[Rfam]
About this RNA
The record is a 600-nucleotide part of an RNA from Paramicrosporidium saccamoebae, which matches "Eukaryotic small subunit ribosomal RNA" in Rfam. On this family, see Cannone et al., BMC Bioinformatics 2002: "The comparative RNA web (CRW) site: an online database of comparative sequence and structure information for ribosomal, intron, and other RNAs".
RNA sequence: UACCUGGUUGAUCCUGCCAGUAGUCAUAUGCUUGUCCCAAAGAUUAAGCCAUGCAUGUCCAAGUAUAAACCUUUAUACGGUGAAACUGCGAAUGGCUCAUUAUAUCAGUUAUAAUUUACUUGAUGAUCUCUUUACUACUUGGAUAACCGUGGUAAUUCUAGAGCUAAUACAUGCAAAGAACCCGACUUACGAAGGGUUGUAUUUAUUAGAUAAAAACCAAUGCCUCGUGCUUUUGGUGAGUCAUGAUAACUGCGCGGAUCGCAUGGCCUUGCGCCGGCGACGCUUCAUUCAAAUUUCUGCCCUAUCAACUUUCGAUGGUAGGAUAGAGGCCUACCAUGGUGUUAACGGGUAACGGGGAAUUGGGGUUCGAUUCCGGAGAGGGAGCCUGAGAAAUGGCUACCACUUCCAAGGAAGGCAGCAGGCGCGCAAAUUACCCAAUCCUGAUUCAGGGAGGUAGUGACAGUAAAUAACAAUGCAGGGCCCUCUGGGUCUUGCAAUUGGAAUGAGAACAAUUUAAAUCCCUUAUCGAGUAACAAUUGGAGGGCAAGUCUGGUGCCAGCAGCCGCGGUAAUUCCAGCUCCAAUAGCGUAUAUUAAAGUU
Numbered sequence: 001u002a003c004c005u006g007g008u009u010g011a012u013c014c015u016g017c018c019a020g021u022a023g024u025c026a027u028a029u030g031c032u033u034g035u036c037c038c039a040a041a042g043a044u045u046a047a048g049c050c051a052u053g054c055a056u057g058u059c060c061a062a063g064u065a066u067a068a069a070c071c072u073u074u075a076u077a078c079g080g081u082g083a084a085a086c087u088g089c090g091a092a093u094g095g096c097u098c099a100u101u102a103u104a105u106c107a108g109u110u111a112u113a114a115u116u117u118a119c120u121u122g123a124u125g126a127u128c129u130c131u132u133u134a135c136u137a138c139u140u141g142g143a144u145a146a147c148c149g150u151g152g153u154a155a156u157u158c159u160a161g162a163g164c165u166a167a168u169a170c171a172u173g174c175a176a177a178g179a180a181c182c183c184g185a186c187u188u189a190c191g192a193a194g195g196g197u198u199g200u201a202u203u204u205a206u207u208a209g210a211u212a213a214a215a216a217c218c219a220a221u222g223c224c225u226c227g228u229g230c231u232u233u234u235g236g237u238g239a240g241u242c243a244u245g246a247u248a249a250c251u252g253c254g255c256g257g258a259u260c261g262c263a264u265g266g267c268c269u270u271g272c273g274c275c276g277g278c279g280a281c282g283c284u285u286c287a288u289u290c291a292a293a294u295u296u297c298u299g300c301c302c303u304a305u306c307a308a309c310u311u312u313c314g315a316u317g318g319u320a321g322g323a324u325a326g327a328g329g330c331c332u333a334c335c336a337u338g339g340u341g342u343u344a345a346c347g348g349g350u351a352a353c354g355g356g357g358a359a360u361u362g363g364g365g366u367u368c369g370a371u372u373c374c375g376g377a378g379a380g381g382g383a384g385c386c387u388g389a390g391a392a393a394u395g396g397c398u399a400c401c402a403c404u405u406c407c408a409a410g411g412a413a414g415g416c417a418g419c420a421g422g423c424g425c426g427c428a429a430a431u432u433a434c435c436c437a438a439u440c441c442u443g444a445u446u447c448a449g450g451g452a453g454g455u456a457g458u459g460a461c462a463g464u465a466a467a468u469a470a471c472a473a474u475g476c477a478g479g480g481c482c483c484u485c486u487g488g489g490u491c492u493u494g495c496a497a498u499u500g501g502a503a504u505g506a507g508a509a510c511a512a513u514u515u516a517a518a519u520c521c522c523u524u525a526u527c528g529a530g531u532a533a534c535a536a537u538u539g540g541a542g543g544g545c546a547a548g549u550c551u552g553g554u555g556c557c558a559g560c561a562g563c564c565g566c567g568g569u570a571a572u573u574c575c576a577g578c579u580c581c582a583a584u585a586g587c588g589u590a591u592a593u594u595a596a597a598g599u600u
Stems, first nucleotide, its partner, number of pairs: 004020005022594003026591007035465001037463001041458001042425001048423003052420003057089002062087003069081002096378003106299003111294002115292002121287003138173001140171002147163001150160003179198005186191001203249006216237004222230001224229001259280004264276004301349003308340003315337008353375004357368004380401002383398003403414004431456001433455003439451005471500003474496010507527002509524001511523001537583006550577004559566002

A search with the family's covariance model found it, with a score of 1774 bits. Gene Ontology terms of the family: ribosome and structural constituent of ribosome. Lineage of the source: Eukaryota > Opisthokonta > Fungi > Rozellomycota > Paramicrosporidium.